[Rfam]
RNA sequence: GGAAAACAGCCAGCGUUUGUUUUAUUUGGUAUGUUACUUUAUGCAAGCUAUAUCAUAAGACACACGCGGCUAUUUUCC
Numbered sequence: 001g002g003a004a005a006a007c008a009g010c011c012a013g014c015g016u017u018u019g020u021u022u023u024a025u026u027u028g029g030u031a032u033g034u035u036a037c038u039u040u041a042u043g044c045a046a047g048c049u050a051u052a053u054c055a056u057a058a059g060a061c062a063c064a065c066g067c068g069g070c071u072a073u074u075u076u077c078c
Stems, first nucleotide, its partner, number of pairs: 001078006008071004013067003018062002021060003027055007
RNA: mir-970 microRNA precursor family